[Rfam]
RNA sequence: ACAACAGUCAUGCCGAGUUCUCCAAAUGCUGGGGAAACGGGGGAACCAUUUUUGGGUGAAUUGACCUCCUAUUUACAGAGGGGUCAUAGGGGACCUUCAACCGAACCCUUAAGCUAACCUCGUAGGCAGUUGGAAGGGGUAUU
Numbered sequence: 001a002c003a004a005c006a007g008u009c010a011u012g013c014c015g016a017g018u019u020c021u022c023c024a025a026a027u028g029c030u031g032g033g034g035a036a037a038c039g040g041g042g043g044a045a046c047c048a049u050u051u052u053u054g055g056g057u058g059a060a061u062u063g064a065c066c067u068c069c070u071a072u073u074u075a076c077a078g079a080g081g082g083g084u085c086a087u088a089g090g091g092g093a094c095c096u097u098c099a100a101c102c103g104a105a106c107c108c109u110u111a112a113g114c115u116a117a118c119c120u121c122g123u124a125g126g127c128a129g130u131u132g133g134a135a136g137g138g139g140u141a142u143u
Stems, first nucleotide, its partner, number of pairs: 011128004018036006037123006048052001054108003062086007089102002
Dot-bracket structure: ..........((((...((((((.......))))))((((((.....(...).(((.....(((((((...........)))))))..((..........))...))).........)))))).))))...............